Rfam assigns this 37-nucleotide sequence from Flavobacterium cyanobacteriorum to the family "abiF RNA". The source organism's lineage runs through Bacteria, Pseudomonadati, Bacteroidota, Flavobacteriia and Flavobacterium. Rfam 15.1 lists 282 matches to the family in 274 species. The base pairs follow the family's consensus structure, which is taken from published work. It scores 43 bits against the family's covariance model.
RNA sequence: CCCACCAUGCCUCUCAGCGAUGCACACUUUGGUGGGU
Dot-bracket structure: ((((((.(((...........)))......)))))).